RNA sequence: AGCCCGCCGGUGACCGGGUCACGUCACCAUCCUCCCUGUUGGACUUGCCCGGGCCGUCGUGCCCGGGUUUUCUU
Number, nucleotide and partner (000 for none) at each position: 001a000002g000003c000004c000005c000006g000007c000008c000009g028010g027011u026012g025013a024014c023015c000016g000017g000018g000019u000020c000021a000022c000023g014024u013025c012026a011027c010028c009029a000030u000031c000032c000033u000034c000035c000036c000037u000038g000039u000040u000041g000042g000043a000044c000045u000046u000047g068048c067049c066050c065051g064052g063053g062054c061055c000056g000057u000058c000059g000060u000061g054062c053063c052064c051065g050066g049067g048068u047069u000070u000071u000072c000073u000074u000
RNA: Singlet oxygen resistance RNA X
Organism: Wenxinia marina